A member of the RNA family "Group II catalytic intron D1-D4-1" from Clostridium botulinum, 86 nucleotides long.
The literature on the family includes a 2001 paper in Trends Genet by Bonen and Vogel, "The ins and outs of group II introns".
From the family's description: Group II introns are found in rRNA, tRNA and mRNA of organelles in fungi, plants and protists, and also in mRNA in bacteria.
RNA sequence: UAGCCUACAUAUUGAUAUGUAGCUGAACUAUCAGAAGUCAGCAAAAGCCAUAGUACUACGUGAAUACGCGUUAGUGUGGAAAGGAC
Numbered sequence: 001u002a003g004c005c006u007a008c009a010u011a012u013u014g015a016u017a018u019g020u021a022g023c024u025g026a027a028c029u030a031u032c033a034g035a036a037g038u039c040a041g042c043a044a045a046a047g048c049c050a051u052a053g054u055a056c057u058a059c060g061u062g063a064a065u066a067c068g069c070g071u072u073a074g075u076g077u078g079g080a081a082a083g084g085a086c
Base pairs, nucleotide, nucleotide: 001025002024005022006021007020008019009018010017011016038045047086049084056079057078058077059076060075061074
The base pairs follow the family's consensus structure.